[Rfam]
RNA sequence: GAAAAAGCAGGGUCUUGUUGCCUUUUUUGAGUGAGGCUCUCGUAAACUUCAGGAAAAUUACUUGCAUUGUUAUUGGGUGAACCUCUGGAUAUUCUUGGUGGCUGAAGGUUCUGUAAAUGAUGCCUCAUUU
Numbered sequence: 001g002a003a004a005a006a007g008c009a010g011g012g013u014c015u016u017g018u019u020g021c022c023u024u025u026u027u028u029g030a031g032u033g034a035g036g037c038u039c040u041c042g043u044a045a046a047c048u049u050c051a052g053g054a055a056a057a058u059u060a061c062u063u064g065c066a067u068u069g070u071u072a073u074u075g076g077g078u079g080a081a082c083c084u085c086u087g088g089a090u091a092u093u094c095u096u097g098g099u100g101g102c103u104g105a106a107g108g109u110u111c112u113g114u115a116a117a118u119g120a121u122g123c124c125u126c127a128u129u130u
Base pairs, nucleotide, nucleotide: 005049006048007047011038012037014035015034016033017032065122066121067120068119069118070117071116079111080110081109082108083107084106
The record is a 130-nucleotide RNA sequence from Gossypium lobatum, which matches "Small nucleolar RNA snoR74" in Rfam.
For this family Rfam cites "Experimental RNomics: identification of 140 candidates for small non-messenger RNAs in the plant Arabidopsis thaliana" (Marker et al., Curr Biol, 2002).
It is annotated as an H/ACA-box small nucleolar RNA.